[Rfam]
RNA sequence: GUGUGCAUGUUAUAAUAUUUAUUGAGCAAGUUGGAUAGAUGGUGGCUAAUCUCUUAAUAAAGGGGUGAUGCCUAUGGUUAUAGUUGUUACUCCUAGAAAGGACUAGCAUGUCUGAUUUUGAAAUGCUUAUGGUUGUAUUAACAAUCAUUGGUUUAGUAUUGAUUAGUACUCAAGACCAUAA
Numbered sequence: 001g002u003g004u005g006c007a008u009g010u011u012a013u014a015a016u017a018u019u020u021a022u023u024g025a026g027c028a029a030g031u032u033g034g035a036u037a038g039a040u041g042g043u044g045g046c047u048a049a050u051c052u053c054u055u056a057a058u059a060a061a062g063g064g065g066u067g068a069u070g071c072c073u074a075u076g077g078u079u080a081u082a083g084u085u086g087u088u089a090c091u092c093c094u095a096g097a098a099a100g101g102a103c104u105a106g107c108a109u110g111u112c113u114g115a116u117u118u119u120g121a122a123a124u125g126c127u128u129a130u131g132g133u134u135g136u137a138u139u140a141a142c143a144a145u146c147a148u149u150g151g152u153u154u155a156g157u158a159u160u161g162a163u164u165a166g167u168a169c170u171c172a173a174g175a176c177c178a179u180a181a
Base pairs, nucleotide, nucleotide: 043150044149045148061094062093063092064091065090066089067088068087070085110130111129114126117123156176157175159173161171162170